This 413-nucleotide RNA from Oricola thermophila belongs to the Rfam family "Bacterial RNase P class A". A search with the family's covariance model found it, with a score of 322 bits.

RNA sequence: CCAGCCGGCCGGGCGGCCGCGCCUGUCACAUGCCGAAAGGCGGCGGGCGAGGAAAGUCCGGGCUCCACGGAGACACGGUGCCGGAUAACGUCCGGCGGGGGCGACCCCAGGGAAAGUGCCACAGAAAGCAAACCGCCCCGCCUGCCUUUUUCGCCGUAAACGGGCGCAAACACAGGCGGGGCAAGGGUGAAAGGGUGGGGUAAGAGCCCACCGCAUGGCUGGCAACAGACAUGGCAUGGCAAACCCCACCGGGAGCAAGACCGAAUAGGGACGGCACAGGGCUUCGGCCCGGUUCAGUUUCCGGAAUGCCGUCCGGGUAGGUUGCUAGAGGCGGGCAGCAAUGCCCGUCCCAGAUGAAUGGCCGCCACGGCGGCAACGCCGUACAGAACCCGGCUUACAGGCCGGCUGGUAAU
Dot-bracket structure: ((((((((((((((((((.((((((((..............))))))))....[[[.[[[[[((((.....[[..((((((((((.....)))))(((((....)))).)((...(((((............(((((((((((..............................)))))))))..)).......((((((.......))))))(((((.(((....))).)))).)..)))..)))))))))))))...((((......((((((.................((((...]]...)))).)))))).....))))......((((((((....))))))))..........)))))))......................]]]]]]]].).))))))))))....

Ribonuclease P (RNase P) is a ubiquitous endoribonuclease, found in archaea, bacteria and eukarya as well as chloroplasts and mitochondria. Its best characterised activity is the generation of mature 5'-ends of tRNAs by cleaving the 5'-leader elements of precursor-tRNAs. Cellular RNase Ps are ribonucleoproteins. Taxonomically the source falls in Oricola (Bacteria, Alphaproteobacteria, Hyphomicrobiales, Ahrensiaceae).